Notes: The record is a 96-nucleotide sequence from Nocardioides sp. Leaf285, which matches "ZMP/ZTP riboswitch aptamer (pfl RNA motif)" in Rfam. The family has 185 seed sequences and 3,295 matches in Rfam 15.1. The organism belongs to Nocardioides, within Bacteria.
RNA sequence: AUGGGCGCACACGACUGGCGCAGGUGGGACCACCACCGGGGAGUGCCCCGCUCGAUCCACGCGGGGGCGAGUGCAUCGACCGCCUGGGUGCCCUCA
Numbered sequence: 001a002u003g004g005g006c007g008c009a010c011a012c013g014a015c016u017g018g019c020g021c022a023g024g025u026g027g028g029a030c031c032a033c034c035a036c037c038g039g040g041g042a043g044u045g046c047c048c049c050g051c052u053c054g055a056u057c058c059a060c061g062c063g064g065g066g067g068c069g070a071g072u073g074c075a076u077c078g079a080c081c082g083c084c085u086g087g088g089u090g091c092c093c094u095c096a
Base pairs, nucleotide, nucleotide: 003052004051007048010045011044012043015040016039017084018083019082020081024036025035026034027033073091074090075089076088077087